Notes
The record is a 61-nucleotide RNA sequence from Medicago truncatula, which matches "MIR2629 microRNA precursor family" in Rfam. The base pairs follow the family's consensus structure, which was predicted with RNAalifold.

RNA sequence: AAGUUUUCCUCGGUAGUUAACUGCAGUCGGUUCCAUAAUUCGGCAGUUAACUGCCGAGGGG
Numbered sequence: 001a002a003g004u005u006u007u008c009c010u011c012g013g014u015a016g017u018u019a020a021c022u023g024c025a026g027u028c029g030g031u032u033c034c035a036u037a038a039u040u041c042g043g044c045a046g047u048u049a050a051c052u053g054c055c056g057a058g059g060g061g
Stems, first nucleotide, its partner, number of pairs: 007060002010057015